[Rfam]
RNA sequence: GGAUCUCUAUGACUCCCCUCAAAGCAUUCCUUCAAAAGCUGAAUGAAAUGAAUGAUAACUCUCCACCAUAAACCUGAUCAGAAACAGAGGUCC
Numbered sequence: 001g002g003a004u005c006u007c008u009a010u011g012a013c014u015c016c017c018c019u020c021a022a023a024g025c026a027u028u029c030c031u032u033c034a035a036a037a038g039c040u041g042a043a044u045g046a047a048a049u050g051a052a053u054g055a056u057a058a059c060u061c062u063c064c065a066c067c068a069u070a071a072a073c074c075u076g077a078u079c080a081g082a083a084a085c086a087g088a089g090g091u092c093c
Base pairs, nucleotide, nucleotide: 001093002092003091004090005089025054026053027052028051029050031046032045